[Rfam]
RNA sequence: UCCAAGAGCUUCUGUCAUGAGUGGCACACGUAAGGCAAUUCUAUUGCUCUUCAAACAGAAUCAACAUGCAGAGAUUUUGGAAGCAUAUUUUUUUUUUUAUUUGGGAAGUUGGUGAUUGUUUGCCCCAGGGUUCUU
Numbered sequence: 001u002c003c004a005a006g007a008g009c010u011u012c013u014g015u016c017a018u019g020a021g022u023g024g025c026a027c028a029c030g031u032a033a034g035g036c037a038a039u040u041c042u043a044u045u046g047c048u049c050u051u052c053a054a055a056c057a058g059a060a061u062c063a064a065c066a067u068g069c070a071g072a073g074a075u076u077u078u079g080g081a082a083g084c085a086u087a088u089u090u091u092u093u094u095u096u097u098u099a100u101u102u103g104g105g106a107a108g109u110u111g112g113u114g115a116u117u118g119u120u121u122g123c124c125c126c127a128g129g130g131u132u133c134u135u
Stems, first nucleotide, its partner, number of pairs: 008084005013026005030052001032050001034048005056079007103133003109128004114124001116122001